This 102-nucleotide sequence from Mesobacillus persicus belongs to the Rfam family "Purine riboswitch aptamer". Taxonomically the source falls in Mesobacillus (Bacteria, Bacilli, Caryophanales, Bacillaceae). Pairs were carried over by alignment from the consensus structure, which is taken from published work.

RNA sequence: AUAAAAUUUAAUUUUUUCCUUCGUAUAAUAAUGGGGAUAUGGCCCAUGAGUUUCUACCCGACGACCGUAAAUUGUUGGACUAUGAGGGAAAGUAGUUCCUUA
Numbered sequence: 001a002u003a004a005a006a007u008u009u010a011a012u013u014u015u016u017u018c019c020u021u022c023g024u025a026u027a028a029u030a031a032u033g034g035g036g037a038u039a040u041g042g043c044c045c046a047u048g049a050g051u052u053u054c055u056a057c058c059c060g061a062c063g064a065c066c067g068u069a070a071a072u073u074g075u076u077g078g079a080c081u082a083u084g085a086g087g088g089a090a091a092g093u094a095g096u097u098c099c100u101u102a
Stems, first nucleotide, its partner, number of pairs: 018088008029049001031047005058078007